Shown here is a 118-nucleotide sequence from Kaistia soli, a member of the family "Alphaproteobacterial ar14". Pairs were carried over by alignment from the consensus structure. NCBI's taxonomy places the organism under Bacteria, Pseudomonadota, Alphaproteobacteria, Hyphomicrobiales, Kaistia soli. The match comes from Rfam's covariance-model search (62 bits). The family's RNA type in Rfam is small RNA.

[Rfam]
RNA sequence: AGACUUCGCGCGGACGGUCCUCCCCCGUCCCCGCGAUCUGGCAGCAAGCGAACCUCCUCCCUCGCCGGCUGCCCCUCAUGAGAACGCCCGCCGAUCUCCUCCCCGGCGGGCGUUUUCG
Numbered sequence: 001a002g003a004c005u006u007c008g009c010g011c012g013g014a015c016g017g018u019c020c021u022c023c024c025c026c027g028u029c030c031c032c033g034c035g036a037u038c039u040g041g042c043a044g045c046a047a048g049c050g051a052a053c054c055u056c057c058u059c060c061c062u063c064g065c066c067g068g069c070u071g072c073c074c075c076u077c078a079u080g081a082g083a084a085c086g087c088c089c090g091c092c093g094a095u096c097u098c099c100u101c102c103c104c105g106g107c108g109g110g111c112g113u114u115u116u117c118g
Base pairs, nucleotide, nucleotide: 007035008034009033010032012030013029014028015027016026040073041072042071043070044069045068048065049064084113085112086111087110088109089108090107091106092105093104